[Rfam]
This 120-nucleotide RNA from Marmota monax belongs to the Rfam family "Small nucleolar RNA SNORA42/SNORA80 family". The match comes from Rfam's covariance-model search (96 bits). Rfam's curators write: The members of this family belong to the H/ACA class of snoRNAs that guide the sites of modification of uridines to pseudouridines. Human ACA42 (SNORA42) was cloned from HeLa cells by immunoprecipitation with anti-GAR1 antibody. Its is predicted to guide the pseudouridylation of residues U109 and U572 of 18S rRNA. ACA42 shares the same host gene with ACA26, ACA46, ACA50. This family also includes mammalian snoRNA ACA67 (SNORA80) which was identified by computational screening and its expression in mouse experimentally verified by Northern blot and primer extension analysis. ACA67 is proposed to guide the pseudouridylation of the same 18S rRNA residues as ACA42. The family's RNA type in Rfam is H/ACA-box small nucleolar RNA.
RNA sequence: GCAUGGGUUUGGAUUUAUGGCAGGCCCGCCCCCUGGGUCCUAUGCCAGAGCAAACUGUGGCCCCAACCAUUGCCUGGCCUCUGCCUGAAGGCUGCUGGCACUGAAGAGGGUUGCACAGUG
Numbered sequence: 001g002c003a004u005g006g007g008u009u010u011g012g013a014u015u016u017a018u019g020g021c022a023g024g025c026c027c028g029c030c031c032c033c034u035g036g037g038u039c040c041u042a043u044g045c046c047a048g049a050g051c052a053a054a055c056u057g058u059g060g061c062c063c064c065a066a067c068c069a070u071u072g073c074c075u076g077g078c079c080u081c082u083g084c085c086u087g088a089a090g091g092c093u094g095c096u097g098g099c100a101c102u103g104a105a106g107a108g109g110g111u112u113g114c115a116c117a118g119u120g
Stems, first nucleotide, its partner, number of pairs: 001045004005040004015035001019031002023027001058113006068103002073098002075094006